[Rfam]
RNA sequence: CGUCGACGAAAUCGCCACAUCGUGUGGCUUCGUCGACAUGACUCACAUCGUGUGAG
Numbered sequence: 001c002g003u004c005g006a007c008g009a010a011a012u013c014g015c016c017a018c019a020u021c022g023u024g025u026g027g028c029u030u031c032g033u034c035g036a037c038a039u040g041a042c043u044c045a046c047a048u049c050g051u052g053u054g055a056g
Stems, first nucleotide, its partner, number of pairs: 002037006014028005042056005
Shown here is a 56-nucleotide sequence from Lysinibacillus telephonicus, a member of the family "Bacillaceae-1 RNA". Rfam classes the family as a small RNA. The family has 95 seed sequences and 5,721 matches in Rfam 15.1.